About this RNA: The record is a 103-nucleotide RNA from Clostridium thermopalmarium, which matches "THF (Tetrahydrofolate) riboswitch aptamer" in Rfam. The base pairs follow the family's consensus structure, which is taken from published work.
RNA sequence: AGCAGAGUAGGUAUUUGUGCGUUAAGUGCUAAAAGAACGGGAAGUUGUCUUUUAGACGAAAAAUGAAAUUUCAUUUGCGAUGCAUAUACCGCAUUCCGCUGCU
Dot-bracket structure: (((((....(((((.(((((((...((.((((((((...[[[.[...))))))))))...((((........))))))).)))).))))).].]]]..)))))
A search with the family's covariance model found it, with a score of 95 bits. Its family is annotated with tetrahydrofolate metabolic process in the Gene Ontology. On this family, see Ames et al., Chem Biol 2010: "A eubacterial riboswitch class that senses the coenzyme tetrahydrofolate". Tetrahydrofolate (THF) riboswitch was first reported for Ames et al. as an RNA motif in 5' untranslated (5'-UTR)regions of folate transport and biosynthesis genes in Firmicutes genomes.